[Rfam]
RNA sequence: CUUCACCGAGCCGAGCCACAGCGGCCGGUCCGCCGCCCUGCCCCGGCCGUACGUGGCGAGGAGCGCCUGCGCCUC
Numbered sequence: 001c002u003u004c005a006c007c008g009a010g011c012c013g014a015g016c017c018a019c020a021g022c023g024g025c026c027g028g029u030c031c032g033c034c035g036c037c038c039u040g041c042c043c044c045g046g047c048c049g050u051a052c053g054u055g056g057c058g059a060g061g062a063g064c065g066c067c068u069g070c071g072c073c074u075c
Stems, first nucleotide, its partner, number of pairs: 015025003031071003038065001043060001047056003
RNA: ASpks TB sRNA
Organism: Streptomyces triculaminicus